[Rfam]
A member of the RNA family "mir-192/215 microRNA precursor family" from Pelodiscus sinensis, 75 nucleotides long.
RNA sequence: AUAGGAAAAUGACCUAUGAAUUGAUAGACUGUGACUUUUAAAUUUGUCUGUCAGUUCUGUAGGCCAAUUUUCUGU
Numbered sequence: 001a002u003a004g005g006a007a008a009a010u011g012a013c014c015u016a017u018g019a020a021u022u023g024a025u026a027g028a029c030u031g032u033g034a035c036u037u038u039u040a041a042a043u044u045u046g047u048c049u050g051u052c053a054g055u056u057c058u059g060u061a062g063g064c065c066a067a068u069u070u071u072c073u074g075u
Stems, first nucleotide, its partner, number of pairs: 001075008010066002013063004018057012031044001
Dot-bracket structure: ((((((((.((.((((.((((((((((((.(............).))))))))))))..)))).)).))))))))
The organism belongs to Pelodiscus, within Eukaryota. A reference for the family is Lagos-Quintana et al. (2003), "New microRNAs from mouse and human", RNA. Its family is annotated with RISC complex and miRNA-mediated post-transcriptional gene silencing in the Gene Ontology. The family's consensus secondary structure was predicted with PFOLD. From the family's description: This family represents the human microRNA (miRNA) precursors mir-192 and mir-215. Animal miRNAs are transcribed as ~70nt precursors and subsequently processed by the Dicer enzyme to give a ~22nt product. In this case the mature sequence comes from the 5' arm of the precursor. The extents of the hairpin precursors are not generally known and are estimated based on hairpin prediction.